[Rfam]
RNA sequence: ACUUAGUUAUACAACUGGCGGAAGUGGAAUUAACCACAUGGAGUAUAAUGGUAAGAGUCGACCGUCUGGGCAAUAGUC
Dot-bracket structure: ...(.(((((((..(.[[[[[..((((......))))..)..))))))).).....(((..]]]]]..))).......
Numbered sequence: 001a002c003u004u005a006g007u008u009a010u011a012c013a014a015c016u017g018g019c020g021g022a023a024g025u026g027g028a029a030u031u032a033a034c035c036a037c038a039u040g041g042a043g044u045a046u047a048a049u050g051g052u053a054a055g056a057g058u059c060g061a062c063c064g065u066c067u068g069g070g071c072a073a074u075a076g077u078c
Stems, first nucleotide, its partner, number of pairs: 004051001006049007015040001017066005024037004057071003